[Rfam]
RNA sequence: GAGAUAUGAUGAAUUCUGUUUCUCUUGGUUCGUGUUUCUGAGUCAUCACUGAUGUUUCAAGUGUUCUGAUCUC
Numbered sequence: 001g002a003g004a005u006a007u008g009a010u011g012a013a014u015u016c017u018g019u020u021u022c023u024c025u026u027g028g029u030u031c032g033u034g035u036u037u038c039u040g041a042g043u044c045a046u047c048a049c050u051g052a053u054g055u056u057u058c059a060a061g062u063g064u065u066c067u068g069a070u071c072u073c
Base pairs, nucleotide, nucleotide: 001073002072003071004070
RNA: Small nucleolar RNA SNORD18
Organism: Acanthaster planci